Rfam assigns this 203-nucleotide RNA from Sclerurus mexicanus to the family "Small nucleolar RNA SNORA74". The family's RNA type in Rfam is H/ACA-box small nucleolar RNA. Rfam links the family to the GO terms nucleolus and RNA processing. Rfam's curators write: U19 belongs to the H/ACA class of snoRNAs. snoRNAs bind a number of proteins (including dyskerin, Gar1p and Nop10p in the case of the H/ACA class) to form snoRNP complexes. Taxonomically the source falls in Sclerurus (Eukaryota, Euteleostomi, Neognathae, Australaves).

RNA sequence: UCCAGUGGUAGUCAGCUGUCCAGAGCAAUGCUGUGCCUGUGAUAGUGUUACACUGCUGGGAGAUAAAGAUCAGUCAUUUCUUCUGGCUGCUGUUGUCCCCGUUCUGGAGGCAGCUGAUGCCAAAAAGAAGUGUCAUUGUGCUUCCCUGAGAGCGCACUAAAGGUUUCCUUUCUCUCUUUAGUGCUAGUCUGGAAGCAUACAUA
Numbered sequence: 001u002c003c004a005g006u007g008g009u010a011g012u013c014a015g016c017u018g019u020c021c022a023g024a025g026c027a028a029u030g031c032u033g034u035g036c037c038u039g040u041g042a043u044a045g046u047g048u049u050a051c052a053c054u055g056c057u058g059g060g061a062g063a064u065a066a067a068g069a070u071c072a073g074u075c076a077u078u079u080c081u082u083c084u085g086g087c088u089g090c091u092g093u094u095g096u097c098c099c100c101g102u103u104c105u106g107g108a109g110g111c112a113g114c115u116g117a118u119g120c121c122a123a124a125a126a127g128a129a130g131u132g133u134c135a136u137u138g139u140g141c142u143u144c145c146c147u148g149a150g151a152g153c154g155c156a157c158u159a160a161a162g163g164u165u166u167c168c169u170u171u172c173u174c175u176c177u178u179u180a181g182u183g184c185u186a187g188u189c190u191g192g193a194a195g196c197a198u199a200c201a202u203a
Stems, first nucleotide, its partner, number of pairs: 001060009011051002015046006021039003068136001074128002082124001084122004090116001092114001094112004099107002138198008154184003158180006